[Rfam]
The record is a 165-nucleotide RNA sequence from Bacillus sp. THAF10, which matches "M-box riboswitch aptamer (ykoK leader)" in Rfam.
Its family is annotated with regulation of gene expression and response to magnesium ion in the Gene Ontology.
The organism belongs to Bacillus, within Bacteria.
About the family: M-box riboswitch, also know as ykoK leader is described as a metaloregulatory RNA that sense divalent metals and function as a genetic control element of genes related to divalent metal transport in bacteria. It was first reported upstream of the B.subtilis ykoK gene and genes with related functions in other bacteria.
RNA sequence: AAAAACCUUCGUUAGGUGAGGCUCCUGUGCUGGAGAUACGCUGCUGCCCAGAAACGUCCAAAGACGCCAAUGGGUCAACAGAGACCAUCGAGAUAAGGUGGUAUUUAAUGCAGCUGGAAUCUUCCUAUGCCACACAGUGCUAAAGCUCUACGAAUGAGGGAUUAC
Number, nucleotide and partner (000 for none) at each position: 001a000002a000003a000004a000005a000006c160007c159008u158009u157010c156011g151012u150013u096014a000015g147016g146017u145018g000019a000020g141021g140022c139023u000024c000025c137026u136027g135028u134029g133030c000031u132032g131033g130034a000035g000036a000037u000038a000039c000040g114041c113042u112043g111044c110045u000046g075047c074048c073049c072050a071051g000052a000053a000054a000055c066056g065057u064058c063059c000060a000061a000062a000063g058064a057065c056066g055067c000068c000069a000070a000071u050072g049073g048074g047075u046076c000077a000078a000079c000080a000081g105082a104083g000084a102085c000086c000087a099088u098089c097090g000091a000092g000093a000094u000095a000096a013097g089098g088099u087100g000101g000102u084103a000104u082105u081106u000107a000108a000109u000110g044111c043112a042113g041114c040115u000116g125117g124118a123119a000120u000121c000122u000123u118124c117125c116126u000127a000128u000129g000130c033131c032132a031133c029134a028135c027136a026137g025138u000139g022140c021141u020142a000143a000144a000145g017146c016147u015148c000149u000150a012151c011152g000153a000154a000155u000156g010157a009158g008159g007160g006161a000162u000163u000164a000165c000